The record is a 107-nucleotide sequence from Cryomorpha ignava, which matches "Bacteroidales small SRP" in Rfam. Its Rfam clan is "SRP clan". On this family, see Ryan et al., Nat Commun 2020: "A high-resolution transcriptome map identifies small RNA regulation of metabolism in the gut microbe Bacteroides thetaiotaomicron". Rfam links the family to the GO terms signal recognition particle, plasma membrane targeting and SRP-dependent cotranslational protein targeting to membrane, signal sequence recognition. It is annotated as a non-coding RNA gene. The source organism's lineage runs through Bacteria, Pseudomonadati, Flavobacteriia, Flavobacteriales and Cryomorpha.
RNA sequence: UUGCGGCGGGCAAGUCUCAUACGACCAGCUCCUGCAGAACUCCCCCAGGACAGGAAUGUAGCAAGGGUAUGUGGUUGAGCGGUGCGAUGUGAGUAGCUUGCCCACUU
Numbered sequence: 001u002u003g004c005g006g007c008g009g010g011c012a013a014g015u016c017u018c019a020u021a022c023g024a025c026c027a028g029c030u031c032c033u034g035c036a037g038a039a040c041u042c043c044c045c046c047a048g049g050a051c052a053g054g055a056a057u058g059u060a061g062c063a064a065g066g067g068u069a070u071g072u073g074g075u076u077g078a079g080c081g082g083u084g085c086g087a088u089g090u091g092a093g094u095a096g097c098u099u100g101c102c103c104a105c106u107u
Stems, first nucleotide, its partner, number of pairs: 008103008017092005022086002024083002